[Rfam]
RNA: mir-140 microRNA precursor family
Organism: Megalops atlanticus
RNA sequence: CGCCGCUCGCCAGUGGUUUUACCCUAUGGUAGGUGAACGUCCGCCUGCUCUACCACAGGGUAGAACCACGGGCGGGACGC
Numbered sequence: 001c002g003c004c005g006c007u008c009g010c011c012a013g014u015g016g017u018u019u020u021a022c023c024c025u026a027u028g029g030u031a032g033g034u035g036a037a038c039g040u041c042c043g044c045c046u047g048c049u050c051u052a053c054c055a056c057a058g059g060g061u062a063g064a065a066c067c068a069c070g071g072g073c074g075g076g077a078c079g080c
Base pairs, nucleotide, nucleotide: 010071011070013069014068015067016066017065018064019063020062021061022060023059024058025057027055028054029053030052031051032050033049038047039046